The record is a 115-nucleotide RNA from Pseudolycoriella hygida, which matches "Group II catalytic intron D1-D4-2" in Rfam.
NCBI's taxonomy places the organism under Eukaryota, Opisthokonta, Pancrustacea, Sciaridae, Pseudolycoriella.
For this family Rfam cites "The ins and outs of group II introns" (Bonen and Vogel, Trends Genet, 2001).
About the family: Group II introns are found in rRNA, tRNA and mRNA of organelles in fungi, plants and protists, and also in mRNA in bacteria.
[Rfam]
Nucleotides: 115
Base pairs, nucleotide, nucleotide: 001015002014003013004012005011016041017040018039019038020037021036023034024033025032026031045115046114048091049090050089051088052087053086054080055079057077058076059075061073062072063071064070096112097111098110099109100108101107
Number, partner (000 for none) and nucleotide at each position: 001015g002014g003013a004012g005011g006000u007000a008000g009000g010000u011005c012004c013003u014002c015001c016041g017040c018039a019038a020037u021036c022000u023034g024033c025032u026031u027000u028000c029000a030000g031026g032025a033024g034023c035000u036021g037020g038019u039018u040017g041016c042000a043000a044000a045115c046114g047000a048091c049090c050089g051088u052087a053086a054080g055079c056000u057077g058076c059075u060000g061073u062072a063071g064070u065000c066000a067000a068000a069000a070064g071063c072062u073061a074000c075059g076058g077057u078000a079055g080054u081000g082000a083000g084000c085000g086053u087052u088051a089050c090049g091048g092000a093000a094000a095000a096112g097111g098110u099109g100108u101107a102000c103000u104000a105000g106000a107101u108100g109099c110098a111097u112096c113000a114046c115045g
The match comes from Rfam's covariance-model search (107 bits).